The record is a 390-nucleotide RNA from Egicoccus halophilus, which matches "Bacterial RNase P class A" in Rfam.
Its family is annotated with ribonuclease P activity, dimeric ribonuclease P complex and tRNA processing in the Gene Ontology.
By type it is a ribozyme.
[Rfam]
RNA sequence: GGAGUCGGCCAGGCGGCCGCGCCACUGACCUCGGUCAGGGUGAGGAAAGUCCGGACUCCUCAGGGCAGGGUGCUGGGUAACCCCCAGGCGUGGUGACACGUGGAAAGCGCCACAGAGAACAGACCGCCACGGUCCUCCGGGGUCGUGGUGAGGGUGAAACGGUGAGGUAAGAGCUCACCAGCACGGUGGGUGACCACCGUGGCUCGGCAAGCCCCACCCGGAGCAAGGCCAAGCAGGGACGACGGUUGCCCGCCCGUCGCACGGCGCGAGCCGUGCGGCACGUCCCAGGUGGGCCGCAACGAGGUGUCGGGAGACCGACAUCCCAGAGAGAUGGUCGCCACCGCCGGUCCGCCGGCGGAACAGAAUCCGGCUUACCGGCCGGCUCCUCCC
Numbered sequence: 001g002g003a004g005u006c007g008g009c010c011a012g013g014c015g016g017c018c019g020c021g022c023c024a025c026u027g028a029c030c031u032c033g034g035u036c037a038g039g040g041u042g043a044g045g046a047a048a049g050u051c052c053g054g055a056c057u058c059c060u061c062a063g064g065g066c067a068g069g070g071u072g073c074u075g076g077g078u079a080a081c082c083c084c085c086a087g088g089c090g091u092g093g094u095g096a097c098a099c100g101u102g103g104a105a106a107g108c109g110c111c112a113c114a115g116a117g118a119a120c121a122g123a124c125c126g127c128c129a130c131g132g133u134c135c136u137c138c139g140g141g142g143u144c145g146u147g148g149u150g151a152g153g154g155u156g157a158a159a160c161g162g163u164g165a166g167g168u169a170a171g172a173g174c175u176c177a178c179c180a181g182c183a184c185g186g187u188g189g190g191u192g193a194c195c196a197c198c199g200u201g202g203c204u205c206g207g208c209a210a211g212c213c214c215c216a217c218c219c220g221g222a223g224c225a226a227g228g229c230c231a232a233g234c235a236g237g238g239a240c241g242a243c244g245g246u247u248g249c250c251c252g253c254c255c256g257u258c259g260c261a262c263g264g265c266g267c268g269a270g271c272c273g274u275g276c277g278g279c280a281c282g283u284c285c286c287a288g289g290u291g292g293g294c295c296g297c298a299a300c301g302a303g304g305u306g307u308c309g310g311g312a313g314a315c316c317g318a319c320a321u322c323c324c325a326g327a328g329a330g331a332u333g334g335u336c337g338c339c340a341c342c343g344c345c346g347g348u349c350c351g352c353c354g355g356c357g358g359a360a361c362a363g364a365a366u367c368c369g370g371c372u373u374a375c376c377g378g379c380c381g382g383c384u385c386c387u388c389c390c
Stems, first nucleotide, its partner, number of pairs: 001386010012339007020042004025038004047373003051370005056223004068219005073087005088101005102214002107212002109208003124153002126149009161179006181203001182201008227295004236286006270279003303322008